The family of this 102-nucleotide sequence from Rossellomorea marisflavi is "azaaromatic riboswitch aptamer (yjdF RNA)". It scores 90 bits against the family's covariance model. The family's consensus secondary structure is taken from published work.
RNA sequence: GAAAUGAAAUGUAAAAACACGAUCCGGUUGGUAGUCCGGAUGCACGCUUGGCGUGUCAGUGACCUUCCCCUCCUCGGGAUGUCCAUCAUUUCAGUAAACAAA
Number, nucleotide and partner (000 for none) at each position: 001g000002a000003a000004a000005u093006g092007a091008a090009a089010u088011g087012u000013a000014a000015a000016a000017a000018c000019a000020c000021g000022a041023u040024c039025c038026g037027g036028u000029u000030g000031g000032u000033a000034g000035u000036c027037c026038g025039g024040a023041u022042g056043c055044a054045c053046g052047c051048u000049u000050g000051g047052c046053g045054u044055g043056u042057c000058a000059g000060u000061g000062a000063c000064c000065u000066u079067c078068c077069c076070c000071u000072c000073c000074u000075c000076g069077g068078g067079a066080u000081g000082u000083c000084c000085a000086u000087c011088a010089u009090u008091u007092c006093a005094g000095u000096a000097a000098a000099c000100a000101a000102a000